[Rfam]
Shown here is a 62-nucleotide RNA sequence from Sciurus carolinensis, a member of the family "Gag/pol translational readthrough site". Rfam links the family to the GO term viral translational readthrough. On this family, see Wills et al., EMBO J 1994: "Pseudoknot-dependent read-through of retroviral gag termination codons: importance of sequences in the spacer and loop 2".
RNA sequence: UAGGGGCGACGGGGUUCGGAACCCCUCCCCGAACCUAGGAUAACUCUGAAAGUAGAGGGGAC
Numbered sequence: 001u002a003g004g005g006g007c008g009a010c011g012g013g014g015u016u017c018g019g020a021a022c023c024c025c026u027c028c029c030c031g032a033a034c035c036u037a038g039g040a041u042a043a044c045u046c047u048g049a050a051a052g053u054a055g056a057g058g059g060g061a062c
Base pairs, nucleotide, nucleotide: 008041010039012036013035014034015033016031018029019028022060023059024058025057026056027055
Dot-bracket structure: .......[.[.[[[[[.[[..((((((]].].]]]]..].].............))))))..